[Rfam]
RNA: MIR162_1 microRNA precursor family
Nucleotides: 104
Stems, first nucleotide, its partner, number of pairs: 013092003018087003022083004027078007036069003
Number, partner (000 for none) and nucleotide at each position: 001000g002000g003000u004000g005000a006000a007000g008000u009000c010000a011000c012000u013092g014091g015090a016000u017000g018087c019086a020085g021000c022083g023082g024081u025080u026000c027078a028077u029076c030075g031074a032073u033072c034000u035000c036069u037068u038067c039000c040000u041000g042000a043000a044000u045000c046000g047000u048000u049000g050000u051000u052000u053000a054000a055000c056000a057000u058000c059000a060000g061000a062000a063000c064000c065000a066000u067038g068037a069036a070000u071000c072033g073032a074031u075030c076029g077028a078027u079000a080025a081024a082023c083022c084000u085020c086019u087018g088000c089000a090015u091014c092013c093000a094000g095000c096000g097000c098000u099000c100000a101000c102000u103000c104000a